This 79-nucleotide RNA sequence from Necator americanus belongs to the Rfam family "SmY spliceosomal RNA". Rfam classes the family as a spliceosomal small nuclear RNA.

RNA sequence: GGAUUCUUGUAAAGAGAAGCAGGGCCUUUCUCAAGACCCACAGUCAGAAUUUUUGGGUACCCUUGCAGAAGUAAGGGUU
Numbered sequence: 001g002g003a004u005u006c007u008u009g010u011a012a013a014g015a016g017a018a019g020c021a022g023g024g025c026c027u028u029u030c031u032c033a034a035g036a037c038c039c040a041c042a043g044u045c046a047g048a049a050u051u052u053u054u055g056g057g058u059a060c061c062c063u064u065g066c067a068g069a070a071g072u073a074a075g076g077g078u079u
Stems, first nucleotide, its partner, number of pairs: 022039003026035003059078008
Rfam 15.1 lists 408 matches to the family in 67 species. It scores 50 bits against the family's covariance model.